[Rfam]
RNA sequence: GAGUUCUGGUCAUUGGCGAGGUUAACUGUUCAAUCAGGUAGCCGAAGGGAAACCGAUAUUCCGCAGUUUUUUACGAGGGAAGUCGUGUGCUCGCGAUGAGUCAAUGGCGCGGAGACCCGAAGCCCGUCGAUCUAUGCCUGGGCAGCUUGAAGCCUUCCGAAGGGGAGGUGGAGGAGCGAAGUGGUUCUAAUGUGCAAAUUGUUCAUGUGACCUGGGUAUAGGGGUGAAAGGCCAAUCUAGGCGGGACAUAGCUGGUU
Numbered sequence: 001g002a003g004u005u006c007u008g009g010u011c012a013u014u015g016g017c018g019a020g021g022u023u024a025a026c027u028g029u030u031c032a033a034u035c036a037g038g039u040a041g042c043c044g045a046a047g048g049g050a051a052a053c054c055g056a057u058a059u060u061c062c063g064c065a066g067u068u069u070u071u072u073a074c075g076a077g078g079g080a081a082g083u084c085g086u087g088u089g090c091u092c093g094c095g096a097u098g099a100g101u102c103a104a105u106g107g108c109g110c111g112g113a114g115a116c117c118c119g120a121a122g123c124c125c126g127u128c129g130a131u132c133u134a135u136g137c138c139u140g141g142g143c144a145g146c147u148u149g150a151a152g153c154c155u156u157c158c159g160a161a162g163g164g165g166a167g168g169u170g171g172a173g174g175a176g177c178g179a180a181g182u183g184g185u186u187c188u189a190a191u192g193u194g195c196a197a198a199u200u201g202u203u204c205a206u207g208u209g210a211c212c213u214g215g216g217u218a219u220a221g222g223g224g225u226g227a228a229a230g231g232c233c234a235a236u237c238u239a240g241g242c243g244g245g246a247c248a249u250a251g252c253u254g255g256u257u
Stems, first nucleotide, its partner, number of pairs: 005113004009108009020043004026037003047054002059081004066074002084095004116255002119252001123245006132221011143209001145177004152169007181206004187201001189200002223233003